[Rfam]
FMN riboswitch aptamer (RFN element): a 154-nucleotide sequence from Bordetella parapertussis. The sequence is in the family's curated seed alignment.

RNA sequence: GUACGUCUUCAGGGCGGGGUGCAAUUCCCCACCGGCGGUAUGCCACGCAAUGUGGCGAGCCCGCGAGCGCCCUGCGUUGGCAACAGCGCAGGGGUCAGCAGACCUGGUGAGAUGCCAGGGCCGACGGUCAUAGUCCGGAUGAGAGAAGAUGUGC
Numbered sequence: 001g002u003a004c005g006u007c008u009u010c011a012g013g014g015c016g017g018g019g020u021g022c023a024a025u026u027c028c029c030c031a032c033c034g035g036c037g038g039u040a041u042g043c044c045a046c047g048c049a050a051u052g053u054g055g056c057g058a059g060c061c062c063g064c065g066a067g068c069g070c071c072c073u074g075c076g077u078u079g080g081c082a083a084c085a086g087c088g089c090a091g092g093g094g095u096c097a098g099c100a101g102a103c104c105u106g107g108u109g110a111g112a113u114g115c116c117a118g119g120g121c122c123g124a125c126g127g128u129c130a131u132a133g134u135c136c137g138g139a140u141g142a143g144a145g146a147a148g149a150u151g152u153g154c
Base pairs, nucleotide, nucleotide: 003152004151005150006149007148008147009146010145017029018028019027031134032133033123034122035064036063037062038061059121060120067099068098103119104118105117106116107115125137126136127135
Dot-bracket structure: ..((((((((......(((.......))).[[((((((....................[[))))..((.............................))...(((((.......)))))]])).(((.....]]))).......))))))))..

Rfam links the family to the GO term FMN binding. The source organism's lineage runs through Bacteria, Pseudomonadati, Betaproteobacteria, Alcaligenaceae and Bordetella.